[Rfam]
RNA sequence: GCCCUUUAAACAUCGUGCGCCAUACCCUAUAUUGGCCUUGUCAGCUUGCUGACUAUGGCGAUAAACGCGCUCGUAAUAACCAGACCGGACCCGGGGGCAGUACCCGGCGGCUCCACCAUUACCUUCAGCUUGUAUUGGCAAGCGAUUAUGGGGCCGAAACAGGAUUGACGGAUGGGUAAAGGGGAAUGCUUUUGCCCGGGUGAGGCCCGAUACAGGCUCAUUCUUAAAGUUGCCAAUGACAACUUUGCUGAAGAAGUUCGUCUCGCUGCCUAGUCAGCGCGUAUAACUUCGCAUUAACUCCUGGGUGUUCGCACGCUCAGGCGGGGUCCGGAGGCACCUGGCAACAGAAGCCUCCACU
Numbered sequence: 001g002c003c004c005u006u007u008a009a010a011c012a013u014c015g016u017g018c019g020c021c022a023u024a025c026c027c028u029a030u031a032u033u034g035g036c037c038u039u040g041u042c043a044g045c046u047u048g049c050u051g052a053c054u055a056u057g058g059c060g061a062u063a064a065a066c067g068c069g070c071u072c073g074u075a076a077u078a079a080c081c082a083g084a085c086c087g088g089a090c091c092c093g094g095g096g097g098c099a100g101u102a103c104c105c106g107g108c109g110g111c112u113c114c115a116c117c118a119u120u121a122c123c124u125u126c127a128g129c130u131u132g133u134a135u136u137g138g139c140a141a142g143c144g145a146u147u148a149u150g151g152g153g154c155c156g157a158a159a160c161a162g163g164a165u166u167g168a169c170g171g172a173u174g175g176g177u178a179a180a181g182g183g184g185a186a187u188g189c190u191u192u193u194g195c196c197c198g199g200g201u202g203a204g205g206c207c208c209g210a211u212a213c214a215g216g217c218u219c220a221u222u223c224u225u226a227a228a229g230u231u232g233c234c235a236a237u238g239a240c241a242a243c244u245u246u247g248c249u250g251a252a253g254a255a256g257u258u259c260g261u262c263u264c265g266c267u268g269c270c271u272a273g274u275c276a277g278c279g280c281g282u283a284u285a286a287c288u289u290c291g292c293a294u295u296a297a298c299u300c301c302u303g304g305g306u307g308u309u310c311g312c313a314c315g316c317u318c319a320g321g322c323g324g325g326g327u328c329c330g331g332a333g334g335c336a337c338c339u340g341g342c343a344a345c346a347g348a349a350g351c352c353u354c355c356a357c358u
Stems, first nucleotide, its partner, number of pairs: 040053005057196005067189003070184003081174002085171003091107005108156007197209004201220003205217001324339004330355006

A member of the RNA family "Alphaproteobacteria transfer-messenger RNA" from Maricaulis salignorans, 358 nucleotides long. It is annotated as a non-coding RNA gene. The match comes from Rfam's covariance-model search (271 bits). About the family: Bacterial tmRNA, also known as 10Sa RNA or SsrA, is named for its dual tRNA and mRNA-like properties. Its role is to liberate the mRNA from a stalled ribosome. The base pairs follow the family's consensus structure, which is taken from published work.